[Rfam]
RNA sequence: GAUGCAAUGAUGAGACAAAAGCACGAAGAGUGUAAGUAGAGUAGUGGACAAGAGAAGAAUUCUUUAAUGGGGUUUGUAUCUUGCCGUGAGCUUAUCUAAUAAACGACUUCUCCUUCCACUGAGCAUA
Numbered sequence: 001g002a003u004g005c006a007a008u009g010a011u012g013a014g015a016c017a018a019a020a021g022c023a024c025g026a027a028g029a030g031u032g033u034a035a036g037u038a039g040a041g042u043a044g045u046g047g048a049c050a051a052g053a054g055a056a057g058a059a060u061u062c063u064u065u066a067a068u069g070g071g072g073u074u075u076g077u078a079u080c081u082u083g084c085c086g087u088g089a090g091c092u093u094a095u096c097u098a099a100u101a102a103a104c105g106a107c108u109u110c111u112c113c114u115u116c117c118a119c120u121g122a123g124c125a126u127a
Stems, first nucleotide, its partner, number of pairs: 002126004
RNA: Small nucleolar RNA Z152/R70/R12/